[Rfam]
RNA sequence: UUGCAGGAUAAGUUACAGUGCAGCUUGUUGGUGCUGCGCUGUCGUUCCCCCUGCACACAGUAACCUGUUUCCAGCUAUCCCUGUCUGUCUAAAUCACCCCGACAACCAGGGACGCAUGGUUUCAGACAU
Numbered sequence: 001u002u003g004c005a006g007g008a009u010a011a012g013u014u015a016c017a018g019u020g021c022a023g024c025u026u027g028u029u030g031g032u033g034c035u036g037c038g039c040u041g042u043c044g045u046u047c048c049c050c051c052u053g054c055a056c057a058c059a060g061u062a063a064c065c066u067g068u069u070u071c072c073a074g075c076u077a078u079c080c081c082u083g084u085c086u087g088u089c090u091a092a093a094u095c096a097c098c099c100c101g102a103c104a105a106c107c108a109g110g111g112a113c114g115c116a117u118g119g120u121u122u123c124a125g126a127c128a129u
Base pairs, nucleotide, nucleotide: 003054004053005052006051007050015042016041017040018039019038020037021036022035023034024033080110081109082108083107086104087103088102
The record is a 129-nucleotide RNA sequence from Pleuronectes platessa, which matches "Small nucleolar RNA SNORA63" in Rfam.
Taxonomically the source falls in Pleuronectes (Eukaryota, Deuterostomia, Neopterygii, Pleuronectiformes).
E3 belongs to the H/ACA class of snoRNAs and is involved in the processing of eukaryotic pre-rRNA and has regions of complementarity to 18S rRNA. E3 is encoded in introns in the gene for protein synthesis initiation factor 4AII.